[Rfam]
RNA sequence: CCAAAGGCUCUUUUAAGAGCCAUCCACAUUACAAUACGAGUAUUCU
Numbered sequence: 001c002c003a004a005a006g007g008c009u010c011u012u013u014u015a016a017g018a019g020c021c022a023u024c025c026a027c028a029u030u031a032c033a034a035u036a037c038g039a040g041u042a043u044u045c046u
Stems, first nucleotide, its partner, number of pairs: 006021006
About this RNA: This 46-nucleotide RNA sequence from Salvelinus namaycush belongs to the Rfam family "Histone 3' UTR stem-loop". By type it is a cis-regulatory element. On this family, see Dominski and Marzluff, Gene 1999: "Formation of the 3' end of histone mRNA". The mRNAs of metazoan histone genes lack a poly-A tail. 3' end processing occurs at a site between a highly conserved stem-loop (modelled by this family) and a purine rich region around 20 nts downstream (the histone downstream element, or HDE). The stem-loop is bound by a 31 kDa stem-loop binding protein (SLBP - also termed the histone hairpin binding protein, or HBP). Together with U7 snRNA binding of the HDE, SLBP binding nucleate s the formation of the processing complex. The histone 3' UTR stem-loop is also involved in nucleocytoplasmic transport of the mRNA, and in stability regulation and translation efficiency in the cytoplasm. Rfam 15.1 lists 44,596 matches to the family in 976 species. NCBI's taxonomy places the organism under Eukaryota, Craniata, Euteleostomi, Protacanthopterygii, Salvelinus.